This 410-nucleotide RNA sequence from Rhodobacter sp. CACIA14H1 belongs to the Rfam family "Bacterial RNase P class A". NCBI's taxonomy places the organism under Bacteria, Pseudomonadati, Alphaproteobacteria, Rhodobacterales, Rhodobacter. Rfam classes the family as a ribozyme. The match comes from Rfam's covariance-model search (255 bits). Ribonuclease P (RNase P) is a ubiquitous endoribonuclease, found in archaea, bacteria and eukarya as well as chloroplasts and mitochondria.
RNA sequence: GCGGAUGGCCGGAUGACCGCGGGACGCAAGACCCGAGGAAAGUCCGGACUCCAUGAAGCAAGGGUGCCGGGUAACGCCCGGCGGGGGAAACCCCAGGGAAAGCGCCACAGAGAAGAGUCUGCCCCUGUCCGCAGGGGUGAUGGUGAAACGGUGGGGUAAAAGCCCACCGCGGGACUGGCAACAGGACCGGCACGGCAAGCCCCACCCGGAGCAAUGCCGAAUAGGGGCCUCGCGCGGAAAGGUCUGCCACAUGCCUUCGGGCGGCAGAGACCUCCGCAGGGACGCUUCAGCCCAGAGGCCCGGGUUGGCAGCUUGACCGUCGCGGCAACGCGCACGGCAGAGGAAUGGUCAUCCAACCCCGGAUCACGGUCCGGGGGGGACAGAAUCCGGCUUACAGGCCAUCCGCGCAG
Numbered sequence: 001g002c003g004g005a006u007g008g009c010c011g012g013a014u015g016a017c018c019g020c021g022g023g024a025c026g027c028a029a030g031a032c033c034c035g036a037g038g039a040a041a042g043u044c045c046g047g048a049c050u051c052c053a054u055g056a057a058g059c060a061a062g063g064g065u066g067c068c069g070g071g072u073a074a075c076g077c078c079c080g081g082c083g084g085g086g087g088a089a090a091c092c093c094c095a096g097g098g099a100a101a102g103c104g105c106c107a108c109a110g111a112g113a114a115g116a117g118u119c120u121g122c123c124c125c126u127g128u129c130c131g132c133a134g135g136g137g138u139g140a141u142g143g144u145g146a147a148a149c150g151g152u153g154g155g156g157u158a159a160a161a162g163c164c165c166a167c168c169g170c171g172g173g174a175c176u177g178g179c180a181a182c183a184g185g186a187c188c189g190g191c192a193c194g195g196c197a198a199g200c201c202c203c204a205c206c207c208g209g210a211g212c213a214a215u216g217c218c219g220a221a222u223a224g225g226g227g228c229c230u231c232g233c234g235c236g237g238a239a240a241g242g243u244c245u246g247c248c249a250c251a252u253g254c255c256u257u258c259g260g261g262c263g264g265c266a267g268a269g270a271c272c273u274c275c276g277c278a279g280g281g282a283c284g285c286u287u288c289a290g291c292c293c294a295g296a297g298g299c300c301c302g303g304g305u306u307g308g309c310a311g312c313u314u315g316a317c318c319g320u321c322g323c324g325g326c327a328a329c330g331c332g333c334a335c336g337g338c339a340g341a342g343g344a345a346u347g348g349u350c351a352u353c354c355a356a357c358c359c360c361g362g363a364u365c366a367c368g369g370u371c372c373g374g375g376g377g378g379g380a381c382a383g384a385a386u387c388c389g390g391c392u393u394a395c396a397g398g399c400c401a402u403c404c405g406c407g408c409a410g
Stems, first nucleotide, its partner, number of pairs: 001406010011395001012353007020035004025030001040393003044390005049211004058287001062207005067081005082096001083094004097202002102200002104196003119142001121138007150168006169191001170189003175184003215310004225301006280293002283290001317336001321332004
Dot-bracket structure: ((((((((((((((((((.((((.(....).))))....[[[.[[[[[((((.....[...((((((((((.....)))))(((((....)))).)((...(((((............(.(((((((....)))))))...).......((((((.......))))))((((..(((....)))..))).)..)))..)))))))))))))...((((......((((((.................................................((.(...]..).))..)))))).....))))......(...((((....))))...)..........)))))))................................]]]]]]]].).))))))))))....